[Rfam]
RNA sequence: GAUAAUGCGGGCGAGAAACCCGCACACCGAAAGACCAAGGAUUCCUCAGCUAUGCUAAUCAGCUGAGGGUUAGUCGGGACCUAAGGCGAACCCGAAAGGGGUAGUCGAUGGACAAGCAGUUAAUAUUCUGCUACCUGCUUUAUAUUAAAAGAGACGGAAGAGCAAAUCUAGUGCGUGCAGACGGAAUUGCACGUUGAACCAUAUGUAAGUAUGGGAUAGUACACCAAAGCUACGGUGGCGGUGAUAAUCUAGAGGCGGUCUUUCCAAGAAAAUCGAAUAAAGCAGCCCGUACCGUAAACCGACACAGGUAGUUGGGAUGAGAAAUCUAAGGUGCU
Numbered sequence: 001g002a003u004a005a006u007g008c009g010g011g012c013g014a015g016a017a018a019c020c021c022g023c024a025c026a027c028c029g030a031a032a033g034a035c036c037a038a039g040g041a042u043u044c045c046u047c048a049g050c051u052a053u054g055c056u057a058a059u060c061a062g063c064u065g066a067g068g069g070u071u072a073g074u075c076g077g078g079a080c081c082u083a084a085g086g087c088g089a090a091c092c093c094g095a096a097a098g099g100g101g102u103a104g105u106c107g108a109u110g111g112a113c114a115a116g117c118a119g120u121u122a123a124u125a126u127u128c129u130g131c132u133a134c135c136u137g138c139u140u141u142a143u144a145u146u147a148a149a150a151g152a153g154a155c156g157g158a159a160g161a162g163c164a165a166a167u168c169u170a171g172u173g174c175g176u177g178c179a180g181a182c183g184g185a186a187u188u189g190c191a192c193g194u195u196g197a198a199c200c201a202u203a204u205g206u207a208a209g210u211a212u213g214g215g216a217u218a219g220u221a222c223a224c225c226a227a228a229g230c231u232a233c234g235g236u237g238g239c240g241g242u243g244a245u246a247a248u249c250u251a252g253a254g255g256c257g258g259u260c261u262u263u264c265c266a267a268g269a270a271a272a273u274c275g276a277a278u279a280a281a282g283c284a285g286c287c288c289g290u291a292c293c294g295u296a297a298a299c300c301g302a303c304a305c306a307g308g309u310a311g312u313u314g315g316g317a318u319g320a321g322a323a324a325u326c327u328a329a330g331g332u333g334c335u
Base pairs, nucleotide, nucleotide: 006024007023008022009021010020011019025333026332027331028330033313034312035311039293040292044068045067046066047065048064049063053061054060075289076288077287078286080111081110085106086105087104089102091100092099093098115132116131117130118129119128135285136284137283138282139281140280141279142278143277145275151274152273156264157263158262159261163258167253168252169251170250171249173194174193175192176191177190178189195226196225202218203217204216228245230243233240234239299308300307315327316326317325318324
A member of the RNA family "Bacterial large subunit ribosomal RNA" from Psychroflexus salarius, 335 nucleotides of a longer RNA.